[Rfam]
RNA sequence: AAGAAAUUAGUUAAACCUAAUAACAUUGGGAUUGUCAGACCAAAGUUACUGGUAAUCAACCCAGUAUUUCUUA
Numbered sequence: 001a002a003g004a005a006a007u008u009a010g011u012u013a014a015a016c017c018u019a020a021u022a023a024c025a026u027u028g029g030g031a032u033u034g035u036c037a038g039a040c041c042a043a044a045g046u047u048a049c050u051g052g053u054a055a056u057c058a059a060c061c062c063a064g065u066a067u068u069u070c071u072u073a
Base pairs, nucleotide, nucleotide: 001072002071003070004069005068006067007066010024011023012022013021026043027042028041029040048065049064050063051062052061
Shown here is a 73-nucleotide RNA, a member of the family "tRNA". The base pairs follow the family's consensus structure, which is taken from published work. It is annotated as a transfer RNA. The sequence is in the family's curated seed alignment.